The family of this 133-nucleotide sequence from Levilactobacillus suantsaii is "Enterococcus sRNA 68 (Lacto-3 RNA)". The source organism's lineage runs through Bacteria, Bacillati, Lactobacillales, Lactobacillaceae and Levilactobacillus. Rfam classes the family as a small RNA. A search with the family's covariance model found it, with a score of 78 bits. The literature on the family includes a 2015 paper in RNA by Innocenti et al., "Whole-genome mapping of 5' RNA ends in bacteria by tagged sequencing: a comprehensive view in Enterococcus faecalis".
[Rfam]
RNA sequence: UGCGAUGAGUCGAGAAAUCACGCGUUGUUGGCUUGCCAAUCGCGUCCGCGCAAGCGGCUAGGUGAAAUUUUGAUCGGUAGGGCACAGAUGUCACCGGAUUGUGACGUGCAGAUUCUGCGGGAAUGUGGAUUCC
Number, nucleotide and partner (000 for none) at each position: 001u000002g000003c000004g000005a000006u000007g000008a000009g000010u000011c000012g000013a000014g000015a000016a000017a000018u065019c064020a063021c062022g045023c044024g043025u042026u000027g000028u000029u000030g000031g000032c000033u000034u000035g000036c000037c000038a000039a000040u000041c000042g025043c024044g023045u022046c057047c056048g055049c054050g000051c000052a000053a000054g049055c048056g047057g046058c000059u000060a000061g000062g021063u020064g019065a018066a000067a000068u000069u000070u000071u000072g000073a000074u000075c000076g000077g000078u000079a000080g000081g000082g109083c108084a107085c106086a000087g000088a000089u000090g105091u104092c103093a102094c101095c000096g000097g000098a000099u000100u000101g094102u093103g092104a091105c090106g085107u084108g083109c082110a000111g000112a000113u000114u000115c000116u000117g000118c000119g000120g133121g132122a131123a130124u129125g000126u000127g000128g000129a124130u123131u122132c121133c120